[Rfam]
A member of the RNA family "Ribosomal protein L20 leader" from Bacillus sp. DNRA2, 133 nucleotides long. Rfam describes the family as follows. This family is a putative r-protein leader autoregulatory structure found in B. subtilis and other low-GC Gram-positive bacteria.
RNA sequence: UGAGAAAAGAAGAAGCACCCGCUUCUCACCUGAUUGACGCUAUAGAAGCUGUCGGUAGGUUUACGGAUAAACAUGUUUAUUAUUGUAUGUUAACGUAAGUGUGGGUGUAUUGCGCCCACACUUUUUUAUUUGC
Numbered sequence: 001u002g003a004g005a006a007a008a009g010a011a012g013a014a015g016c017a018c019c020c021g022c023u024u025c026u027c028a029c030c031u032g033a034u035u036g037a038c039g040c041u042a043u044a045g046a047a048g049c050u051g052u053c054g055g056u057a058g059g060u061u062u063a064c065g066g067a068u069a070a071a072c073a074u075g076u077u078u079a080u081u082a083u084u085g086u087a088u089g090u091u092a093a094c095g096u097a098a099g100u101g102u103g104g105g106u107g108u109a110u111u112g113c114g115c116c117c118a119c120a121c122u123u124u125u126u127u128a129u130u131u132g133c
Stems, first nucleotide, its partner, number of pairs: 011026006028060003036053003039049002100120009

Annotation:
Pairs were carried over by alignment from the consensus structure, which was predicted with CMfinder. Its family is annotated with regulation of gene expression in the Gene Ontology.